[Rfam]
RNA sequence: CGACCGGUCACUCGUCUCGAGUCACCGUCCGUAGCGACUCGGUGCUCGCGUCGAGUGACCGCUCG
Numbered sequence: 001c002g003a004c005c006g007g008u009c010a011c012u013c014g015u016c017u018c019g020a021g022u023c024a025c026c027g028u029c030c031g032u033a034g035c036g037a038c039u040c041g042g043u044g045c046u047c048g049c050g051u052c053g054a055g056u057g058a059c060c061g062c063u064c065g
Stems, first nucleotide, its partner, number of pairs: 001065003005061010016050001018048004
mir-m107-1 microRNA precursor family: a 65-nucleotide sequence from Muromegalovirus muridbeta1.
The organism belongs to Muromegalovirus muridbeta1, within Viruses.
Rfam 15.1 lists 4 matches to the family in 3 species.
Its family is annotated with miRNA-mediated post-transcriptional gene silencing and RISC complex in the Gene Ontology.
Pairs were carried over by alignment from the consensus structure, which was predicted with RNAalifold.